[Rfam]
The family of this 182-nucleotide sequence from Advenella kashmirensis is "Manganese Mn2+ riboswitch aptamer (yybP-ykoY)". The organism belongs to Advenella kashmirensis, within Bacteria. It is one of the family's seed sequences. The family has 29 seed sequences and 1,126 matches in Rfam 15.1.
RNA sequence: CCGAUAUAAUCUAGCCAUCACUGGGGAGUAGCCGCUCAUUUUCCUGAGGUUUACGUCAACAUACUUGAUGCAUGCAUCAUGGCGUAAACAGCGAUAUCGCUUGGCAAGACCUUUGAUCACUUUUUUCCGUUCAGACCGGAGGAAAAGGUGAUCAUUCGUCUAUUGUCCGGUCGCGGUAUUGA
Numbered sequence: 001c002c003g004a005u006a007u008a009a010u011c012u013a014g015c016c017a018u019c020a021c022u023g024g025g026g027a028g029u030a031g032c033c034g035c036u037c038a039u040u041u042u043c044c045u046g047a048g049g050u051u052u053a054c055g056u057c058a059a060c061a062u063a064c065u066u067g068a069u070g071c072a073u074g075c076a077u078c079a080u081g082g083c084g085u086a087a088a089c090a091g092c093g094a095u096a097u098c099g100c101u102u103g104g105c106a107a108g109a110c111c112u113u114u115g116a117u118c119a120c121u122u123u124u125u126u127c128c129g130u131u132c133a134g135a136c137c138g139g140a141g142g143a144a145a146a147g148g149u150g151a152u153c154a155u156u157c158g159u160c161u162a163u164u165g166u167c168c169g170g171u172c173g174c175g176g177u178a179u180u181g182a
Stems, first nucleotide, its partner, number of pairs: 036047003049089010066079005092181007